[Rfam]
RNA: Small nucleolar RNA Z13/snr52
Nucleotides: 101
Stems, first nucleotide, its partner, number of pairs: 003100002026078004
Number, partner (000 for none) and nucleotide at each position: 001000g002000u003100u004099u005000a006000u007000u008000a009000u010000a011000u012000g013000a014000u015000g016000a017000a018000a019000c020000a021000c022000u023000u024000u025000u026078c027077g028076g029075a030000u031000g032000u033000a034000a035000a036000c037000a038000c039000a040000g041000a042000c043000c044000u045000g046000u047000u048000c049000u050000a051000a052000g053000u054000g055000c056000g057000c058000a059000a060000a061000a062000c063000c064000a065000u066000g067000c068000g069000g070000a071000u072000a073000u074000u075029u076028c077027c078026g079000u080000u081000g082000c083000c084000u085000u086000c087000c088000u089000u090000c091000u092000g093000a094000u095000u096000a097000a098000a099004a100003a101000c